[Rfam]
Overview:
The family of this 130-nucleotide RNA sequence from Firmicutes bacterium CAG:176 is "Ribosomal protein L10 leader". Rfam describes the family as follows. This family is a putative r-protein leader autoregulatory structure found in B. subtilis and other low-GC Gram-positive bacteria. It is located in the 5' untranslated regions of mRNAs encoding ribosomal proteins L10 and L12 (rplJ-rplL). A Rho-independent transcription terminator structure that is probably involved in regulation is included at the 3' end. Taxonomically the source falls in Bacillota (Bacteria, Bacillati).

RNA sequence: UAUAAUAUUGGUUGCGUUCCAAAGACAGCAGGUGGCGAAAGCCGUAAGUCCUGCCGAGGAUGGCAAGUCAUUUUGAUUGCUUUUACCGUCCUCAUGUCCUUUGGCAUGAGGACGGUUUCCUUUUUUGAAC
Numbered sequence: 001u002a003u004a005a006u007a008u009u010g011g012u013u014g015c016g017u018u019c020c021a022a023a024g025a026c027a028g029c030a031g032g033u034g035g036c037g038a039a040a041g042c043c044g045u046a047a048g049u050c051c052u053g054c055c056g057a058g059g060a061u062g063g064c065a066a067g068u069c070a071u072u073u074u075g076a077u078u079g080c081u082u083u084u085a086c087c088g089u090c091c092u093c094a095u096g097u098c099c100u101u102u103g104g105c106a107u108g109a110g111g112a113c114g115g116u117u118u119c120c121u122u123u124u125u126u127g128a129a130c
Base pairs, nucleotide, nucleotide: 028054029053030052031051032050034043035042036041086115087114088113089112090111091110092109093108094107095106096105097104098103
The family's RNA type in Rfam is cis-regulatory leader. It scores 66 bits against the family's covariance model.